[Rfam]
RNA sequence: AACGGUGAUACGCCGAACCAUCAUUGGGCGGGGGAUAUCUUUUCUGGGGUGAAGGACGCCAACGCGUCCCGGGCAACCUUUCUGUCCGAAUCCGUCAACUAACCUCGCAGGCGAUAGAAGGGAGAGCA
Numbered sequence: 001a002a003c004g005g006u007g008a009u010a011c012g013c014c015g016a017a018c019c020a021u022c023a024u025u026g027g028g029c030g031g032g033g034g035a036u037a038u039c040u041u042u043u044c045u046g047g048g049g050u051g052a053a054g055g056a057c058g059c060c061a062a063c064g065c066g067u068c069c070c071g072g073g074c075a076a077c078c079u080u081u082c083u084g085u086c087c088g089a090a091u092c093c094g095u096c097a098a099c100u101a102a103c104c105u106c107g108c109a110g111g112c113g114a115u116a117g118a119a120g121g122g123a124g125a126g127c128a
Base pairs, nucleotide, nucleotide: 011113012112013111014110018027019026020025028108029107030106031105032104033103038046047093048092049091055068056067057066058065071087072086073085074084